[Rfam]
RNA sequence: CAUGUUAAAAGGCAAAACUAGAGAAAUCUAGUGACGCAAAACUAUAGGGCCUGAAAUGGUAGCCAGUUGCACAC
Dot-bracket structure: ...........((...((((((....))))))...))..((((...(((((......)))..))))))......

Shown here is a 74-nucleotide RNA sequence from Acholeplasma brassicae, a member of the family "c-di-GMP-I riboswitch aptamer".
The family's consensus secondary structure is taken from published work.
A search with the family's covariance model found it, with a score of 62 bits.
Lineage of the source: Bacteria > Bacillati > Acholeplasmatales > Acholeplasmataceae > Acholeplasma.